[Rfam]
RNA sequence: CUGAAUAUUGGGCAAACCCGUCGAAAGGCGGGGACGCAAAGCUAAAGGGUCUAAGGACUUCGUGUCUAUGAUUGCCAGCUGCCGGU
Numbered sequence: 001c002u003g004a005a006u007a008u009u010g011g012g013c014a015a016a017c018c019c020g021u022c023g024a025a026a027g028g029c030g031g032g033g034a035c036g037c038a039a040a041g042c043u044a045a046a047g048g049g050u051c052u053a054a055g056g057a058c059u060u061c062g063u064g065u066c067u068a069u070g071a072u073u074g075c076c077a078g079c080u081g082c083c084g085g086u
Stems, first nucleotide, its partner, number of pairs: 012037002017032006040080004047076002049072003056066003
A member of the RNA family "c-di-GMP-I riboswitch aptamer" from Thermosinus carboxydivorans, 86 nucleotides long. Pairs were carried over by alignment from the consensus structure, which is taken from published work. The source organism's lineage runs through Bacteria, Bacillati, Bacillota, Negativicutes and Thermosinus carboxydivorans.